[Rfam]
RNA sequence: UUGUCUCUUGUUUCAACAGUGUUUGGAUAGAACAU
Numbered sequence: 001u002u003g004u005c006u007c008u009u010g011u012u013u014c015a016a017c018a019g020u021g022u023u024u025g026g027a028u029a030g031a032a033c034a035u
Stems, first nucleotide, its partner, number of pairs: 002034003006031003010028001012027005017021001